RNA sequence: CUGUGCUAGUCGGGGAGGUAGCGGUGCCUUGUAUCUGCAAUCCGCUGUAGCAGAGAUGAUGUUUCUUUUGAGGCUUCAGCCUUUGAGGUCUGACCUUGCCAACUGGUGUUGAGGGUGGAGUCUUACGCAAUAGGGUCUUGUGAACCGUGUCAGAUUCGAGAGAAAGCAGCACUAAGCAAGUAAUUCUAUGUGCCGUAAGGUAGCUUGACCUGAGUCAGUUGUCAUUGUAACGCUUGGAGUCUGUUGUCGAUGGGAAAUGCACAG
Numbered sequence: 001c002u003g004u005g006c007u008a009g010u011c012g013g014g015g016a017g018g019u020a021g022c023g024g025u026g027c028c029u030u031g032u033a034u035c036u037g038c039a040a041u042c043c044g045c046u047g048u049a050g051c052a053g054a055g056a057u058g059a060u061g062u063u064u065c066u067u068u069u070g071a072g073g074c075u076u077c078a079g080c081c082u083u084u085g086a087g088g089u090c091u092g093a094c095c096u097u098g099c100c101a102a103c104u105g106g107u108g109u110u111g112a113g114g115g116u117g118g119a120g121u122c123u124u125a126c127g128c129a130a131u132a133g134g135g136u137c138u139u140g141u142g143a144a145c146c147g148u149g150u151c152a153g154a155u156u157c158g159a160g161a162g163a164a165a166g167c168a169g170c171a172c173u174a175a176g177c178a179a180g181u182a183a184u185u186c187u188a189u190g191u192g193c194c195g196u197a198a199g200g201u202a203g204c205u206u207g208a209c210c211u212g213a214g215u216c217a218g219u220u221g222u223c224a225u226u227g228u229a230a231c232g233c234u235u236g237g238a239g240u241c242u243g244u245u246g247u248c249g250a251u252g253g254g255a256a257a258u259g260c261a262c263a264g
Stems, first nucleotide, its partner, number of pairs: 001264006009057003012030004017025001019023001034054005063257002066254003072248003078242002081239007091229002096224001098222002102219002105216003113211004118206004122199006128190002131188005137180005147172004155164003
RNA: Bacterial large signal recognition particle RNA
Organism: Eubacterium sp. CAG:274